[Rfam]
RNA sequence: GGGGUGUGCUCAGAGCAGGGAUGCUGAAGAAAUGGUUCCUCUGUUUACAGCACGCCCAACAGGAAUCCUGGCUCACUGUGACAAGGGGCACAAGACUUGUGGCUUCCCUACGAGCAAAUACCUACACGU
Numbered sequence: 001g002g003g004g005u006g007u008g009c010u011c012a013g014a015g016c017a018g019g020g021a022u023g024c025u026g027a028a029g030a031a032a033u034g035g036u037u038c039c040u041c042u043g044u045u046u047a048c049a050g051c052a053c054g055c056c057c058a059a060c061a062g063g064a065a066u067c068c069u070g071g072c073u074c075a076c077u078g079u080g081a082c083a084a085g086g087g088g089c090a091c092a093a094g095a096c097u098u099g100u101g102g103c104u105u106c107c108c109u110a111c112g113a114g115c116a117a118a119u120a121c122c123u124a125c126a127c128g129u
Stems, first nucleotide, its partner, number of pairs: 002057007013046008024034001070122002073120001077116003082112001085105003089101005